[Rfam]
RNA sequence: CAUGAUUAAGAAGAUCAUUCUCGUAGUAGGAAGGCACAUGGGCAAGGCGGCGUAGCCGCCAGGCGACAGCCGCUCAUGUGCAGAAGACAGGCUCCCUCGGGGGCCUUUUUUAUUGGGCCGAA
Numbered sequence: 001c002a003u004g005a006u007u008a009a010g011a012a013g014a015u016c017a018u019u020c021u022c023g024u025a026g027u028a029g030g031a032a033g034g035c036a037c038a039u040g041g042g043c044a045a046g047g048c049g050g051c052g053u054a055g056c057c058g059c060c061a062g063g064c065g066a067c068a069g070c071c072g073c074u075c076a077u078g079u080g081c082a083g084a085a086g087a088c089a090g091g092c093u094c095c096c097u098c099g100g101g102g103g104c105c106u107u108u109u110u111u112a113u114u115g116g117g118c119c120g121a122a
Stems, first nucleotide, its partner, number of pairs: 007028001029118001034081009046060005063070002087107001089106007

The family of this 122-nucleotide sequence from Chelativorans sp. BNC1 is "Rhizobiales sRNA Atu_C8". Lineage of the source: Bacteria > Alphaproteobacteria > Hyphomicrobiales > Phyllobacteriaceae > Chelativorans. On this family, see Wilms et al., RNA Biol 2012: "Deep sequencing uncovers numerous small RNAs on all four replicons of the plant pathogen Agrobacterium tumefaciens". The sequence is in the family's curated seed alignment.